[Rfam]
Background:
A member of the RNA family "c-di-GMP-I riboswitch aptamer" from Fontibacillus phaseoli, 88 nucleotides long. Rfam's curators write: GEMM was predicted in a large-scale screen for bacterial structured RNA regulatory elements. NCBI's taxonomy places the organism under Bacteria, Bacillati, Bacillota, Caryophanales, Fontibacillus. The family's consensus secondary structure is taken from published work.
RNA sequence: UAGAAUAUUCGGCACACUAAUCGAAAGAUUAGGUCGCAAAGCCUUGGAGUCUAAUAAUCGUGUGAUUAAUGACCGUCCGGCUGCAUAA
Numbered sequence: 001u002a003g004a005a006u007a008u009u010c011g012g013c014a015c016a017c018u019a020a021u022c023g024a025a026a027g028a029u030u031a032g033g034u035c036g037c038a039a040a041g042c043c044u045u046g047g048a049g050u051c052u053a054a055u056a057a058u059c060g061u062g063u064g065a066u067u068a069a070u071g072a073c074c075g076u077c078c079g080g081c082u083g084c085a086u087a088a
Base pairs, nucleotide, nucleotide: 012037013036017032018031019030020029021028022027040082041081042080043079046078047077048076049073050072051071056067057066058065059064